[Rfam]
Record summary: The family of this 196-nucleotide sequence from Coxiella burnetii is "Coxiella burnetii sRNA 4". Rfam's curators put it in the seed alignment.
RNA sequence: CGGCUAUCUAUACAGGGAUACAUUAAUUUGGAUGUUGCGUUGGGGUUUGGUGCGGUCAAGUGGCUACAUUUGCGACAGAAUGGCAGGAACGAUCUUCCGUAACCGAUUCCCACCACGCUAUCACAAACAUUCCUUAAAGACUCUUGCGAGAUCCCUUCCCGCGCUUCCUUGAGAAGUUUUCCUUUUGCCUUCAUGG
Number, nucleotide and partner (000 for none) at each position: 001c000002g189003g188004c187005u000006a000007u000008c000009u174010a000011u172012a000013c171014a170015g169016g168017g167018a166019u000020a000021c000022a000023u000024u000025a000026a000027u000028u000029u000030g132031g131032a130033u129034g128035u127036u126037g118038c117039g116040u115041u112042g111043g110044g109045g108046u000047u106048u105049g104050g103051u102052g100053c099054g098055g097056u000057c072058a071059a070060g069061u068062g067063g000064c000065u000066a000067c062068a061069u060070u059071u058072g057073c000074g000075a000076c000077a000078g000079a000080a000081u000082g000083g000084c000085a000086g095087g094088a000089a000090c000091g000092a000093u000094c087095u086096u000097c055098c054099g053100u052101a000102a051103c050104c049105g048106a047107u000108u045109c044110c043111c042112a041113c000114c000115a040116c039117g038118c037119u000120a000121u000122c000123a000124c000125a000126a036127a035128c034129a033130u032131u031132c030133c000134u000135u000136a000137a000138a000139g000140a000141c000142u000143c000144u000145u000146g162147c161148g160149a000150g158151a157152u000153c000154c000155c000156u000157u151158c150159c000160c148161g147162c146163g000164c000165u000166u018167c017168c016169u015170u014171g013172a011173g000174a009175a183176g182177u000178u000179u000180u000181c000182c176183u175184u000185u000186u000187g004188c003189c002190u000191u000192c000193a000194u000195g000196g000
The organism belongs to Coxiella burnetii, within Bacteria. It is annotated as an antisense RNA. In bacteria small regulatory RNAs are activated during stress and virulence conditions. Coxiella burnetii small RNAs: CbSRs 1, 11, 12, and 14 encoded within intergenic region IGR, and CbSRs 2, 3, 4 and 9 located antisense to identified ORFs, are up-regulated during intracellular growth in host cells.